RNA sequence: AGGCGCCUGCAGCAUGACAGUUAAGGCUCUCAUGCCCGUGCGCCGGAAUCUGGUCGCGCCGCUGGGUCACAAGCCCACCGACAUGCACAUGAAGGAUACCGCCGCCGGCGUGCGGGCCGAGUCCAGUGCAGCUUCCCACCUGAUCGGUGAAAACCUUCGGAUCGGUAGCCUACAUAGCGCGACAGGCAC
Numbered sequence: 001a002g003g004c005g006c007c008u009g010c011a012g013c014a015u016g017a018c019a020g021u022u023a024a025g026g027c028u029c030u031c032a033u034g035c036c037c038g039u040g041c042g043c044c045g046g047a048a049u050c051u052g053g054u055c056g057c058g059c060c061g062c063u064g065g066g067u068c069a070c071a072a073g074c075c076c077a078c079c080g081a082c083a084u085g086c087a088c089a090u091g092a093a094g095g096a097u098a099c100c101g102c103c104g105c106c107g108g109c110g111u112g113c114g115g116g117c118c119g120a121g122u123c124c125a126g127u128g129c130a131g132c133u134u135c136c137c138a139c140c141u142g143a144u145c146g147g148u149g150a151a152a153a154c155c156u157u158c159g160g161a162u163c164g165g166u167a168g169c170c171u172a173c174a175u176a177g178c179g180c181g182a183c184a185g186g187c188a189c
Base pairs, nucleotide, nucleotide: 004042005041006040012035013034014033015032016031017030019028020027021026054182055181056180057179058178059177060080061079063077064076065075066074067073084130085129086128087127088126094124095123096122099121102115103114104113105112132168133167135165136164138162140160141159142158143157146155147154148153
Shown here is a 189-nucleotide sequence from Pandoraea sp. SD6-2, a member of the family "RT-15 RNA". Rfam's curators put it in the seed alignment. The family's consensus secondary structure is taken from published work.